Shown here is a 46-nucleotide RNA from Tetracentron sinense, a member of the family "Plastid-rpl16 group II-D1 intron".
RNA sequence: AAGAGCUCGAGUCAAUAAAGAUUGAGGAGAUUGACUCGGGAACAAA
Numbered sequence: 001a002a003g004a005g006c007u008c009g010a011g012u013c014a015a016u017a018a019a020g021a022u023u024g025a026g027g028a029g030a031u032u033g034a035c036u037c038g039g040g041a042a043c044a045a046a
Stems, first nucleotide, its partner, number of pairs: 007040002009037008
Lineage of the source: Eukaryota > Streptophytina > Tracheophyta > Trochodendraceae > Tetracentron. The family has 538 seed sequences and 1,446 matches in Rfam 15.1. The family's consensus secondary structure was predicted with LocARNA. Rfam's curators write: Plastid-rpl16 is a non-coding RNA (ncRNA) recognised in plastids.